Background:
ZMP/ZTP riboswitch aptamer (pfl RNA motif): a 115-nucleotide RNA from Paraburkholderia steynii. It scores 59 bits against the family's covariance model.
RNA sequence: UCACCCCUGCGUGACUGGCGAUAGAACCCCAUGCUGUCAAGCCUGACGGGUUCAAGGUGGAGCGUCCCACCGUGAAGCGCAGGGUGCCGUUGUGCCGUUCGCCUGGGCAGCCAUG
Dot-bracket structure: ....((((((((..(.[[[[[...................................((((......))))...)..))))))))........((((..]]]]]..))))......